[Rfam]
Shown here is a 418-nucleotide sequence from Parasedimentitalea huanghaiensis, a member of the family "Bacterial RNase P class A". A search with the family's covariance model found it, with a score of 291 bits. Gene Ontology terms of the family: dimeric ribonuclease P complex, ribonuclease P activity and tRNA processing. Rfam classes the family as a ribozyme.
RNA sequence: GCAGAGGGCUGGAUGGCCGCGGGGGGCUUAAGCCCCGCGAGGAAAGUCCGGACUCCAUAAGGCAGUGGUGCCGGGUAACGCCCGGGCAGGGCAACUUGACGGAUAGCGCCACAGAAAACAGACCGCCGCGGCGAGUCAGAGGUUCGCCUCUGGCAAAACGCGGUAAGGGUGAAACGGUGGAGUAAGAGCCCACCGCGCUGCUGGCAACAGGAGCGGCACGGCAAGCCCCACCAGGAGCAAUGCCAAAUAGGACCCCCGCGCGGGCUGAUCCUGGCAACAGGAUAUCGCCGCUAGGUAUGCUUUAACCAAGAGGGGUCGGGUUGGCAGCUUGAGGUUCGCAGCAAUGCGCGCCCUAGAGGAAUGGUCAUCGAAGGGGGCAACCCCGGAACAAAAUCCGGCUUAUAGGCCCUCUGCGCAA
Numbered sequence: 001g002c003a004g005a006g007g008g009c010u011g012g013a014u015g016g017c018c019g020c021g022g023g024g025g026g027c028u029u030a031a032g033c034c035c036c037g038c039g040a041g042g043a044a045a046g047u048c049c050g051g052a053c054u055c056c057a058u059a060a061g062g063c064a065g066u067g068g069u070g071c072c073g074g075g076u077a078a079c080g081c082c083c084g085g086g087c088a089g090g091g092c093a094a095c096u097u098g099a100c101g102g103a104u105a106g107c108g109c110c111a112c113a114g115a116a117a118a119c120a121g122a123c124c125g126c127c128g129c130g131g132c133g134a135g136u137c138a139g140a141g142g143u144u145c146g147c148c149u150c151u152g153g154c155a156a157a158a159c160g161c162g163g164u165a166a167g168g169g170u171g172a173a174a175c176g177g178u179g180g181a182g183u184a185a186g187a188g189c190c191c192a193c194c195g196c197g198c199u200g201c202u203g204g205c206a207a208c209a210g211g212a213g214c215g216g217c218a219c220g221g222c223a224a225g226c227c228c229c230a231c232c233a234g235g236a237g238c239a240a241u242g243c244c245a246a247a248u249a250g251g252a253c254c255c256c257c258g259c260g261c262g263g264g265c266u267g268a269u270c271c272u273g274g275c276a277a278c279a280g281g282a283u284a285u286c287g288c289c290g291c292u293a294g295g296u297a298u299g300c301u302u303u304a305a306c307c308a309a310g311a312g313g314g315g316u317c318g319g320g321u322u323g324g325c326a327g328c329u330u331g332a333g334g335u336u337c338g339c340a341g342c343a344a345u346g347c348g349c350g351c352c353c354u355a356g357a358g359g360a361a362u363g364g365u366c367a368u369c370g371a372a373g374g375g376g377g378c379a380a381c382c383c384c385g386g387a388a389c390a391a392a393a394u395c396c397g398g399c400u401u402a403u404a405g406g407c408c409c410u411c412u413g414c415g416c417a418a
Stems, first nucleotide, its partner, number of pairs: 001414010011403001012369007020039002023036005044401003048398005053237004062303001066233005071085005086100001087098004101228002106226002108222003123168002125164006176194005195217001196215004201210003241326004251317006296310001298308002333352003337348004